The family of this 207-nucleotide RNA sequence from Oryza barthii is "MIR812 microRNA precursor family".
Its family is annotated with RISC complex and miRNA-mediated post-transcriptional gene silencing in the Gene Ontology.
The match comes from Rfam's covariance-model search (111 bits).
[Rfam]
RNA sequence: UUUAAGUGUAGUUAUAAAUUUUCAUGUUUAAUAUUUGAUUAUCCGUUCUUUUUUUAAAAAAUAUGAUUAGUAUUUUUAUUAUUAAUAGAUAAUAAAACAUGAAUAGUAUUCUAUGCAUGACUUAUUUUCUUAAAGAAAUUUCAUAAUUUUUUCAAAUAAGACGGGUUGUCAAAUAUUGGAUACGGAAAACUUACAAUUACACUCAAA
Numbered sequence: 001u002u003u004a005a006g007u008g009u010a011g012u013u014a015u016a017a018a019u020u021u022u023c024a025u026g027u028u029u030a031a032u033a034u035u036u037g038a039u040u041a042u043c044c045g046u047u048c049u050u051u052u053u054u055u056a057a058a059a060a061a062u063a064u065g066a067u068u069a070g071u072a073u074u075u076u077u078a079u080u081a082u083u084a085a086u087a088g089a090u091a092a093u094a095a096a097a098c099a100u101g102a103a104u105a106g107u108a109u110u111c112u113a114u115g116c117a118u119g120a121c122u123u124a125u126u127u128u129c130u131u132a133a134a135g136a137a138a139u140u141u142c143a144u145a146a147u148u149u150u151u152u153c154a155a156a157u158a159a160g161a162c163g164g165g166u167u168g169u170c171a172a173a174u175a176u177u178g179g180a181u182a183c184g185g186a187a188a189a190c191u192u193a194c195a196a197u198u199a200c201a202c203u204c205a206a207a
Stems, first nucleotide, its partner, number of pairs: 027180006034173006041166006048160003052156001